[Rfam]
RNA: drz-agam-2-2 ribozyme
Organism: Anopheles stephensi
RNA sequence: AAGAGUAAGGCUCUGUUAAUGAGGUAGGAUCCGAGACUCCUUUCGGCGUUACACAGACUCUUCUACCCAACUCUUAUUCCGUCACGUCCUCGUCGUACAGAGUGGUAACUUUCCCCACCACAUAUCCAAGCUUGGGUACACGGGCCUAUCCCAACCCCUUGGGCGGAUGUUGGAGAAAGGCUAAACAGGAGGGG
Numbered sequence: 001a002a003g004a005g006u007a008a009g010g011c012u013c014u015g016u017u018a019a020u021g022a023g024g025u026a027g028g029a030u031c032c033g034a035g036a037c038u039c040c041u042u043u044c045g046g047c048g049u050u051a052c053a054c055a056g057a058c059u060c061u062u063c064u065a066c067c068c069a070a071c072u073c074u075u076a077u078u079c080c081g082u083c084a085c086g087u088c089c090u091c092g093u094c095g096u097a098c099a100g101a102g103u104g105g106u107a108a109c110u111u112u113c114c115c116c117a118c119c120a121c122a123u124a125u126c127c128a129a130g131c132u133u134g135g136g137u138a139c140a141c142g143g144g145c146c147u148a149u150c151c152c153a154a155c156c157c158c159u160u161g162g163g164c165g166g167a168u169g170u171u172g173g174a175g176a177a178a179g180g181c182u183a184a185a186c187a188g189g190a191g192g193g194g
Stems, first nucleotide, its partner, number of pairs: 010103007023067007032056001072194004077190002080188001084096003088105002109179005115173002119169001124168004132154005156163002